RNA sequence: UUUCGUGCUCCGGGGUCGGUGGAAGUCCGAACCGGCGGUGACAGCCCGCGAACCUCGCGCGGCGUCUCGGCACGCACGGCGCGGUCUCGGCGACGGGACGGGUCGGCGAACCGAGAGGCGGCGAGGCCGAAUCGGUGGAAUUCCGAUGCCGACAGUCAGAGUCUGGAUGGGAGAAGCACGAGG
Numbered sequence: 001u002u003u004c005g006u007g008c009u010c011c012g013g014g015g016u017c018g019g020u021g022g023a024a025g026u027c028c029g030a031a032c033c034g035g036c037g038g039u040g041a042c043a044g045c046c047c048g049c050g051a052a053c054c055u056c057g058c059g060c061g062g063c064g065u066c067u068c069g070g071c072a073c074g075c076a077c078g079g080c081g082c083g084g085u086c087u088c089g090g091c092g093a094c095g096g097g098a099c100g101g102g103u104c105g106g107c108g109a110a111c112c113g114a115g116a117g118g119c120g121g122c123g124a125g126g127c128c129g130a131a132u133c134g135g136u137g138g139a140a141u142u143c144c145g146a147u148g149c150c151g152a153c154a155g156u157c158a159g160a161g162u163c164u165g166g167a168u169g170g171g172a173g174a175a176g177c178a179c180g181a182g183g
Stems, first nucleotide, its partner, number of pairs: 003181007010173001017029003031162002033151002035049004044149002053126006131147005153165003